[Rfam]
RNA sequence: CUUGAUCGAGCCCAGCCACAGCGGUCGGCCGGCGGGGCGGUCCUGCCCGUAGGUGGCCAGCAACGCCUGGGCCUC
Numbered sequence: 001c002u003u004g005a006u007c008g009a010g011c012c013c014a015g016c017c018a019c020a021g022c023g024g025u026c027g028g029c030c031g032g033c034g035g036g037g038c039g040g041u042c043c044u045g046c047c048c049g050u051a052g053g054u055g056g057c058c059a060g061c062a063a064c065g066c067c068u069g070g071g072c073c074u075c
Stems, first nucleotide, its partner, number of pairs: 015025003033071001038065002043060003047056003

This 75-nucleotide RNA sequence from Saccharopolyspora erythraea belongs to the Rfam family "ASpks TB sRNA". The family's consensus secondary structure is taken from published work.